About this RNA: The record is a 74-nucleotide RNA sequence from Flavobacteriaceae bacterium 3519-10, which matches "tRNA" in Rfam. It is annotated as a transfer RNA. NCBI's taxonomy places the organism under Bacteria, Pseudomonadati, Flavobacteriia, Flavobacteriales, Flavobacteriaceae. Transfer RNA (tRNA) molecules are approximately 80 nucleotides in length. It scores 63 bits against the family's covariance model.

RNA sequence: GGCCUUGUAACUCAGCUGGUUAGAGUAGCUGACUCAUAAUCAGCAAGUCCUUGGUUCGAGCCCAAGCUGGGCCA
Numbered sequence: 001g002g003c004c005u006u007g008u009a010a011c012u013c014a015g016c017u018g019g020u021u022a023g024a025g026u027a028g029c030u031g032a033c034u035c036a037u038a039a040u041c042a043g044c045a046a047g048u049c050c051u052u053g054g055u056u057c058g059a060g061c062c063c064a065a066g067c068u069g070g071g072c073c074a
Base pairs, nucleotide, nucleotide: 001073002072003071004070005069007067010026011025012024013023028044029043030042031041032040050066051065052064053063054062